[Rfam]
RNA sequence: AGUAUUAGUGGAUGAAACCUUGAAACAAUCUUAGGACACCUUCUAGCAUUGCUUAUUUACCUGUGAAUGAGAAAGAAUUUAUAUUCUGAUGAUACA
Numbered sequence: 001a002g003u004a005u006u007a008g009u010g011g012a013u014g015a016a017a018c019c020u021u022g023a024a025a026c027a028a029u030c031u032u033a034g035g036a037c038a039c040c041u042u043c044u045a046g047c048a049u050u051g052c053u054u055a056u057u058u059a060c061c062u063g064u065g066a067a068u069g070a071g072a073a074a075g076a077a078u079u080u081a082u083a084u085u086c087u088g089a090u091g092a093u094a095c096a
Stems, first nucleotide, its partner, number of pairs: 002095006045049001